[Rfam]
This 88-nucleotide RNA from Erwinia tracheiphila belongs to the Rfam family "RpsF leader". Its family is annotated with protein binding and negative regulation of translation in the Gene Ontology. Rfam's curators put it in the seed alignment. The source organism's lineage runs through Bacteria, Pseudomonadota, Gammaproteobacteria, Erwiniaceae and Erwinia. On this family, see Fu et al., RNA 2014: "Bacterial RNA motif in the 5' UTR of rpsF interacts with an S6:S18 complex".
RNA sequence: GCCGUACACACUACACGUUCCUUGCUUCCAUGGGCUCGCGGCUGACCCUGACAGGAGGCUGAAUAAUCCGUAAGGAGCAAAUUCGAUG
Dot-bracket structure: ................(((((((((((((..(((...........))).....))))))............)))))))..........